Annotation
Plastid-ccsA-ndhD-2 3UTR RNA: a 57-nucleotide RNA from Carapa guianensis. Taxonomically the source falls in Carapa (Eukaryota, Streptophyta, Tracheophyta, Pentapetalae). For this family Rfam cites "Retrograde signaling in plants: A critical review focusing on the GUN pathway and beyond" (Richter et al., Plant Commun, 2023). By type it is a cis-regulatory element. The base pairs follow the family's consensus structure, which was predicted with LocARNA. About the family: Plastid ccsA-ndhD-2 is a non-coding RNA (ncRNA) recognised in plastids. It was found in the three prime untranslated region (3UTR) of ccsA and ndhD genes, its 3UTR location suggests a role in transcript maturation.
RNA sequence: GCCUUUGUAAGAACCUUUUGAAUCAAACGGUGUGGUGAUUCAAAAGGUUCUCGGCGU
Numbered sequence: 001g002c003c004u005u006u007g008u009a010a011g012a013a014c015c016u017u018u019u020g021a022a023u024c025a026a027a028c029g030g031u032g033u034g035g036u037g038a039u040u041c042a043a044a045a046g047g048u049u050c051u052c053g054g055c056g057u
Stems, first nucleotide, its partner, number of pairs: 008053001010051016